[Rfam]
Rfam assigns this 149-nucleotide RNA sequence from Ralstonia sp. 5_2_56FAA to the family "Group II catalytic intron D1-D4-7". The organism belongs to Ralstonia, within Bacteria. Pairs were carried over by alignment from the consensus structure. The family has 244 seed sequences and 1,296 matches in Rfam 15.1. On this family, see Bonen and Vogel, Trends Genet 2001: "The ins and outs of group II introns". It scores 115 bits against the family's covariance model. About the family: Group II introns are found in rRNA, tRNA and mRNA of organelles in fungi, plants and protists, and also in mRNA in bacteria. Rfam links the family to the GO term Group II intron splicing.
RNA sequence: CCGGUUGUUCCAUCAACCGUUCCCUACCCGGACAUGCUGAGCGGGCAACUGCUCGGUGUGAAGCUCCGGGGACAACGUACCCGCCGGAUUAGCCGGUACUCGGUCCCGCGAGGGGCGUGGAAACUGCCAGCACAGAGGCGGUGAGGGGC
Numbered sequence: 001c002c003g004g005u006u007g008u009u010c011c012a013u014c015a016a017c018c019g020u021u022c023c024c025u026a027c028c029c030g031g032a033c034a035u036g037c038u039g040a041g042c043g044g045g046c047a048a049c050u051g052c053u054c055g056g057u058g059u060g061a062a063g064c065u066c067c068g069g070g071g072a073c074a075a076c077g078u079a080c081c082c083g084c085c086g087g088a089u090u091a092g093c094c095g096g097u098a099c100u101c102g103g104u105c106c107c108g109c110g111a112g113g114g115g116c117g118u119g120g121a122a123a124c125u126g127c128c129a130g131c132a133c134a135g136a137g138g139c140g141g142u143g144a145g146g147g148g149c
Base pairs, nucleotide, nucleotide: 002019003018004017005016006015007014028069029068030067031066032065033060034059035058036057037056038055039054040053041052042051043050044049083097084096085095086094087093099119101117102116106113107112123142124141125140126139127138128137
Dot-bracket structure: .((((((......))))))........(((((((((((((((((....))))))))))))....))))).............(((((.....))))).(.((...((....))..)).)...((((((........)))))).......